A member of the RNA family "RAGATH-18 RNA", 73 nucleotides long.
It is one of the family's seed sequences.

[Rfam]
RNA sequence: CCUUUGGAGUAUCAUAUCAAAUGUGAGUAGUAAUAGAUUUCCUAUUAUCAAAGCAGAUACGUCGAAAAAGGAA
Numbered sequence: 001c002c003u004u005u006g007g008a009g010u011a012u013c014a015u016a017u018c019a020a021a022u023g024u025g026a027g028u029a030g031u032a033a034u035a036g037a038u039u040u041c042c043u044a045u046u047a048u049c050a051a052a053g054c055a056g057a058u059a060c061g062u063c064g065a066a067a068a069a070g071g072a073a
Stems, first nucleotide, its partner, number of pairs: 001071005009060005022055003030048003035043002